[Rfam]
RNA sequence: AUGAAAAACCCGGGAGAGAUCUUCUUUUCAGCAGAAGGCGCCGAAGGUGAAACGUUAGGAAACUCUCAGGCAAAAGGACCGGGCUUGGACG
Number, nucleotide and partner (000 for none) at each position: 001a000002u000003g000004a000005a000006a086007a085008a000009c083010c082011c081012g080013g079014g000015a000016g000017a000018g000019a000020u038021c037022u036023u035024c034025u033026u000027u000028u000029c000030a000031g000032c000033a025034g024035a023036a022037g021038g020039c000040g071041c070042c069043g067044a066045a000046g000047g065048u000049g063050a000051a000052a000053c058054g000055u000056u000057a000058g053059g000060a000061a000062a000063c049064u000065c047066u044067c043068a000069g042070g041071c040072a000073a000074a000075a000076g000077g000078a000079c013080c012081g011082g010083g009084c000085u007086u006087g000088g000089a000090c000091g000
Glycine riboswitch aptamer: a 91-nucleotide RNA sequence from Youxingia wuxianensis. A search with the family's covariance model found it, with a score of 69 bits. The source organism's lineage runs through Bacteria, Bacillati, Bacillota, Oscillospiraceae and Youxingia.